[Rfam]
RNA sequence: GUGGCUGCCGGGUGGAUGCUCUCUACUAGUGCUGUGCAGAGGCUAUCACUGAGGCUGCUGUGAGACUGUAGGGUUUUCCCCUGGGCUACGGAGCCAG
Numbered sequence: 001g002u003g004g005c006u007g008c009c010g011g012g013u014g015g016a017u018g019c020u021c022u023c024u025a026c027u028a029g030u031g032c033u034g035u036g037c038a039g040a041g042g043c044u045a046u047c048a049c050u051g052a053g054g055c056u057g058c059u060g061u062g063a064g065a066c067u068g069u070a071g072g073g074u075u076u077u078c079c080c081c082u083g084g085g086c087u088a089c090g091g092a093g094c095c096a097g
Stems, first nucleotide, its partner, number of pairs: 002096005007086003010082002014080002018076001021073006028067002032064002036061004041056004046051001